[Rfam]
RNA sequence: CUUUGUGGUGGUUUUCUUUCCGGUACAUUUGGUAAGUUUUCAAAUGGGCCCAACUCUGCCACAUAUAUUAUACCAGAGCUCGCAAAGGCUUGAGGACAGAGAUCUCUCUUAAGCCUUUCUGCAUCAGAGAUGGGCUCCCCCACGU
Numbered sequence: 001c002u003u004u005g006u007g008g009u010g011g012u013u014u015u016c017u018u019u020c021c022g023g024u025a026c027a028u029u030u031g032g033u034a035a036g037u038u039u040u041c042a043a044a045u046g047g048g049c050c051c052a053a054c055u056c057u058g059c060c061a062c063a064u065a066u067a068u069u070a071u072a073c074c075a076g077a078g079c080u081c082g083c084a085a086a087g088g089c090u091u092g093a094g095g096a097c098a099g100a101g102a103u104c105u106c107u108c109u110u111a112a113g114c115c116u117u118u119c120u121g122c123a124u125c126a127g128a129g130a131u132g133g134g135c136u137c138c139c140c141c142a143c144g145u
Stems, first nucleotide, its partner, number of pairs: 005062007022050003026046006076137005082089002105130005
Dot-bracket structure: ....(((((((..........(((.((((((.........)))))).))).....))))))).............(((((.((....))...............(((((................)))))..)))))........
About this RNA
Rfam assigns this 145-nucleotide RNA sequence from Prolemur simus to the family "Small nucleolar RNA SNORA12". Lineage of the source: Eukaryota > Metazoa > Chordata > Craniata > Prolemur. Rfam's curators write: U108 belongs to the H/ACA family of snoRNAs. The sequence is predicted to guide the pseudouridylation of the U372 residue in the 28S rRNA subunit. However it has not been reported as a pseudouridylation site.